The record is a 72-nucleotide RNA from Hymenochirus boettgeri, which matches "Small nucleolar RNA Z40" in Rfam. It scores 61 bits against the family's covariance model. The source organism's lineage runs through Eukaryota, Chordata, Teleostomi, Amphibia and Hymenochirus. It is annotated as a C/D-box small nucleolar RNA. The family's consensus secondary structure was predicted with PFOLD.
RNA sequence: UAAAGUUCUGAUGAAUGGCAAUGUUCAACUGCUCUGAACCAGUUUGAGUGAAAAUAGCCUUUCUGAACUUCU
Numbered sequence: 001u002a003a004a005g006u007u008c009u010g011a012u013g014a015a016u017g018g019c020a021a022u023g024u025u026c027a028a029c030u031g032c033u034c035u036g037a038a039c040c041a042g043u044u045u046g047a048g049u050g051a052a053a054a055u056a057g058c059c060u061u062u063c064u065g066a067a068c069u070u071c072u
Stems, first nucleotide, its partner, number of pairs: 003070004